[Rfam]
RNA sequence: CGUCUGCUGUGAUGAACCACAUGUUCAGUCUGUGUUUCACCUGAUCUGCCCUGAUUACACACAUGCUCUGAGCAGACU
Numbered sequence: 001c002g003u004c005u006g007c008u009g010u011g012a013u014g015a016a017c018c019a020c021a022u023g024u025u026c027a028g029u030c031u032g033u034g035u036u037u038c039a040c041c042u043g044a045u046c047u048g049c050c051c052u053g054a055u056u057a058c059a060c061a062c063a064u065g066c067u068c069u070g071a072g073c074a075g076a077c078u
Base pairs, nucleotide, nucleotide: 002077003076004075005074006073007072
RNA: Small nucleolar RNA SNORD126
Organism: Pelusios castaneus